[Rfam]
RNA sequence: AAAUAACUAUAAAGUCAGGCUGGAAAAUUAUAUUUCACAGCCGGGCCUUAAGGCAGCGGAUAUGCCCGCGGGACUUCA
Numbered sequence: 001a002a003a004u005a006a007c008u009a010u011a012a013a014g015u016c017a018g019g020c021u022g023g024a025a026a027a028u029u030a031u032a033u034u035u036c037a038c039a040g041c042c043g044g045g046c047c048u049u050a051a052g053g054c055a056g057c058g059g060a061u062a063u064g065c066c067c068g069c070g071g072g073a074c075u076u077c078a
Stems, first nucleotide, its partner, number of pairs: 011076002016072001018042004022036004027031001045054003056069004
Dot-bracket structure: ..........((...(.((((((((.(...).))))..))))..(((....))).((((......))))..)..))..